[Rfam]
RNA sequence: CUGCAGGGCUCUUAGGGUUCCGCUGCCGGUGUGUCCGGCAGGACCGGUCCGAGAAGAGCCACCCCGCCGGCAAAUUCCGGCCGGGGCACACGGCGGGCCAAAAUCCCGGGAGAG
Numbered sequence: 001c002u003g004c005a006g007g008g009c010u011c012u013u014a015g016g017g018u019u020c021c022g023c024u025g026c027c028g029g030u031g032u033g034u035c036c037g038g039c040a041g042g043a044c045c046g047g048u049c050c051g052a053g054a055a056g057a058g059c060c061a062c063c064c065c066g067c068c069g070g071c072a073a074a075u076u077c078c079g080g081c082c083g084g085g086g087c088a089c090a091c092g093g094c095g096g097g098c099c100a101a102a103a104u105c106c107c108g109g110g111a112g113a114g
Stems, first nucleotide, its partner, number of pairs: 007060006015050002020047002022044001023041006062086005068080001089109001091112001095107003
A member of the RNA family "Guanidine-I riboswitch aptamer" from Roseivivax jejudonensis, 114 nucleotides long. The base pairs follow the family's consensus structure. A search with the family's covariance model found it, with a score of 82 bits. Taxonomically the source falls in Roseivivax (Bacteria, Pseudomonadati, Pseudomonadota, Roseobacteraceae). On this family, see Barrick et al., Proc Natl Acad Sci U S A 2004: "New RNA motifs suggest an expanded scope for riboswitches in bacterial genetic control".